Shown here is a 226-nucleotide sequence from Roseospira navarrensis, a member of the family "permuted transfer-messenger RNA".
The family's RNA type in Rfam is non-coding RNA gene.
A search with the family's covariance model found it, with a score of 146 bits.
[Rfam]
RNA sequence: GACGCUAAACCCUGCUUGGAAUAAGCGUAGUGGACCCGGGGGCAGUACCCGGCGCCUCCACCAAUGACCAGGGGUCCGCGCCGCGUCGCGGGCCCCGAUCCGGGGGCGAAACAGGAUCGACACGCGUGGUAAAGAAGCAGGUUGCGUUCGGCAUGGCACCACCGUUAUCGGGCCAAACGCAAUAGUUGCCAACGACAACUAUGCUCCGGAAGCUGUCGCCGCGUAA
Numbered sequence: 001g002a003c004g005c006u007a008a009a010c011c012c013u014g015c016u017u018g019g020a021a022u023a024a025g026c027g028u029a030g031u032g033g034a035c036c037c038g039g040g041g042g043c044a045g046u047a048c049c050c051g052g053c054g055c056c057u058c059c060a061c062c063a064a065u066g067a068c069c070a071g072g073g074g075u076c077c078g079c080g081c082c083g084c085g086u087c088g089c090g091g092g093c094c095c096c097g098a099u100c101c102g103g104g105g106g107c108g109a110a111a112c113a114g115g116a117u118c119g120a121c122a123c124g125c126g127u128g129g130u131a132a133a134g135a136a137g138c139a140g141g142u143u144g145c146g147u148u149c150g151g152c153a154u155g156g157c158a159c160c161a162c163c164g165u166u167a168u169c170g171g172g173c174c175a176a177a178c179g180c181a182a183u184a185g186u187u188g189c190c191a192a193c194g195a196c197a198a199c200u201a202u203g204c205u206c207c208g209g210a211a212g213c214u215g216u217c218g219c220c221g222c223g224u225a226a
Stems, first nucleotide, its partner, number of pairs: 001148005014138004026126003030123003036052005053108007149164003

From the family's description: Bacterial tmRNA, also known as 10Sa RNA or SsrA, is named for its dual tRNA and mRNA-like properties. Its role is to liberate the mRNA from a stalled ribosome.